RNA sequence: UUGUCAGUAUUCAAUUUUGAAACUGAACUUUAAAAAAAAAUUUUUCUUUGAACAACUCACAUCCUUAUAGGAGUGAGAGUGGGAG
Number, nucleotide and partner (000 for none) at each position: 001u000002u000003g028004u026005c025006a024007g023008u022009a000010u021011u020012c000013a000014a000015u000016u000017u000018u000019g000020a011021a010022a008023c007024u006025g005026a004027a000028c003029u000030u000031u000032a000033a000034a000035a000036a000037a000038a000039a000040a000041u000042u000043u000044u000045u000046c000047u000048u000049u000050g000051a000052a000053c081054a080055a000056c077057u076058c075059a074060c073061a000062u072063c071064c070065u000066u000067a000068u000069a000070g064071g063072a062073g060074u059075g058076a057077g056078a000079g000080u054081g053082g000083g000084a000085g000

Rfam assigns this 85-nucleotide RNA sequence from Clostridium frigidicarnis to the family "pan motif". The source organism's lineage runs through Bacteria, Bacillati, Clostridia, Eubacteriales and Clostridium. Rfam classes the family as a cis-regulatory element.